This 61-nucleotide RNA sequence from Streptomyces sp. SBT349 belongs to the Rfam family "L17-Actino-Proteobacteria ribosomal protein leader". The sequence is in the family's curated seed alignment. For this family Rfam cites "Discovery of 20 novel ribosomal leader candidates in bacteria and archaea" (Eckert and Weinberg, BMC Microbiol, 2020).
[Rfam]
RNA sequence: CGUUCCGAGGGGUGUCCUCGGGACGUUUCGCUGACACCGGUACCUGAUACGGCCGGUGCAG
Numbered sequence: 001c002g003u004u005c006c007g008a009g010g011g012g013u014g015u016c017c018u019c020g021g022g023a024c025g026u027u028u029c030g031c032u033g034a035c036a037c038c039g040g041u042a043c044c045u046g047a048u049a050c051g052g053c054c055g056g057u058g059c060a061g
Base pairs, nucleotide, nucleotide: 001025002024003023004022005021006020007019008018009017010016011015031061032060033059035058036057037056038055039054040053041052